Rfam assigns this 137-nucleotide RNA sequence from beta proteobacterium CB to the family "icd-II ncRNA motif". Taxonomically the source falls in Betaproteobacteria (Bacteria, Pseudomonadati, Pseudomonadota). The literature on the family includes a 2021 paper in RNA Biol by Brewer et al., "Comprehensive discovery of novel structured noncoding RNAs in 26 bacterial genomes". By type it is a cis-regulatory element. Rfam's curators put it in the seed alignment. The base pairs follow the family's consensus structure, which is taken from published work.
[Rfam]
RNA sequence: UCGAUGAUUUAAAAUAGACGUCUCGGUCCAGUGCGUGAAAUAACACCCAAGACAGCCAAAAGCGUCCGAAGUGUUGCGUGCGGAAUACGGGAGUGGUUCGGUAUAAGACCGAGCCCUAAUAUUUAUCCAUAUCGAGG
Numbered sequence: 001u002c003g004a005u006g007a008u009u010u011a012a013a014a015u016a017g018a019c020g021u022c023u024c025g026g027u028c029c030a031g032u033g034c035g036u037g038a039a040a041u042a043a044c045a046c047c048c049a050a051g052a053c054a055g056c057c058a059a060a061a062g063c064g065u066c067c068g069a070a071g072u073g074u075u076g077c078g079u080g081c082g083g084a085a086u087a088c089g090g091g092a093g094u095g096g097u098u099c100g101g102u103a104u105a106a107g108a109c110c111g112a113g114c115c116c117u118a119a120u121a122u123u124u125a126u127c128c129a130u131a132u133c134g135a136g137g
Base pairs, nucleotide, nucleotide: 001135002134003133004132005131006130010125011124012123013122021092022091023090024089025088028083029082031081032080033079034078035077036076044073045072046071055063056062095115096114098112099111100110101109
About this RNA
icd-II ncRNA motif was located upstream of icd gene, which codes for NADP+-dependent isocitrate dehydrogenase (IDH) enzyme. icd-II has been proposed as a strong candidate riboswitch. Part of the secondary structure of icd-II includes the ribosomal binding site (RBS) of the adjacent gene wish suggest that this element can be regulating translation initiation of its associated transcript. Gene Ontology term of the family: regulation of gene expression.